[Rfam]
RNA sequence: CUACAGUGCUUGAUUCUUUAUAGGUGUUCAGUAAGUGUUUGUCAUAUAAUCCAUUUACUGAGCACCUCCUAUCAAUCAAGCACUGUUCUAGGCUCUGU
Numbered sequence: 001c002u003a004c005a006g007u008g009c010u011u012g013a014u015u016c017u018u019u020a021u022a023g024g025u026g027u028u029c030a031g032u033a034a035g036u037g038u039u040u041g042u043c044a045u046a047u048a049a050u051c052c053a054u055u056u057a058c059u060g061a062g063c064a065c066c067u068c069c070u071a072u073c074a075a076u077c078a079a080g081c082a083c084u085g086u087u088c089u090a091g092g093c094u095c096u097g098u
Base pairs, nucleotide, nucleotide: 003086004085005084006083007082008081009080010079011078012077013076014075015074018071022067023066024065025064027062029060030059031058032057033056034055035054036053037052040049
This 98-nucleotide sequence from Pteropus alecto belongs to the Rfam family "mir-325 microRNA precursor family". Pairs were carried over by alignment from the consensus structure, which was predicted with RNAalifold. The match comes from Rfam's covariance-model search (96 bits). NCBI's taxonomy places the organism under Eukaryota, Eumetazoa, Deuterostomia, Yinpterochiroptera, Pteropus.